Overview
The family of this 110-nucleotide RNA sequence from Thermoactinomyces sp. AS95 is "PyrR binding site". Rfam's curators write: This family represents the PyrR binding site and terminator structure. This RNA structure is found upstream of a variety of genes involved in pyrimidine biosynthesis and transport. Rfam classes the family as a cis-regulatory element.
RNA sequence: AAUCCCUUUUAAAUCGGUCCAGUGAGUCCGGCAAAGGGAUGCGGUUGACAAACAAGCGCUGUAUUGUUUUACUGCGUCUCUUUGCGUAUGGGCAAAGAGACGUUUUUUUA
Numbered sequence: 001a002a003u004c005c006c007u008u009u010u011a012a013a014u015c016g017g018u019c020c021a022g023u024g025a026g027u028c029c030g031g032c033a034a035a036g037g038g039a040u041g042c043g044g045u046u047g048a049c050a051a052a053c054a055a056g057c058g059c060u061g062u063a064u065u066g067u068u069u070u071a072c073u074g075c076g077u078c079u080c081u082u083u084g085c086g087u088a089u090g091g092g093c094a095a096a097g098a099g100a101c102g103u104u105u106u107u108u109u110a
Stems, first nucleotide, its partner, number of pairs: 003039007014031004019026001050069006074103012
Dot-bracket structure: ..(((((((....((((.(......).)))).)))))))..........((((((........))))))....((((((((((((......)))))))))))).......
Overview
The base pairs follow the family's consensus structure, which is taken from published work. The family has 41 seed sequences and 1,498 matches in Rfam 15.1. Its family is annotated with pyrimidine nucleobase biosynthetic process and pyrimidine nucleobase transport in the Gene Ontology.